[Rfam]
RNA sequence: CCGGCACCGGUUCACCUCGACGUCUCGUCACGUCUCGUCGGGGACCCGGCGGCC
Numbered sequence: 001c002c003g004g005c006a007c008c009g010g011u012u013c014a015c016c017u018c019g020a021c022g023u024c025u026c027g028u029c030a031c032g033u034c035u036c037g038u039c040g041g042g043g044a045c046c047c048g049g050c051g052g053c054c
Base pairs, nucleotide, nucleotide: 003054004053005052007049008048009047010046015043016042017041018040019039020038021037022036

Record summary
Shown here is a 54-nucleotide RNA from Actinophytocola xinjiangensis, a member of the family "L31-Actinobacteria ribosomal protein leader". It is annotated as a cis-regulatory leader. Pairs were carried over by alignment from the consensus structure, which is taken from published work. The match comes from Rfam's covariance-model search (52 bits).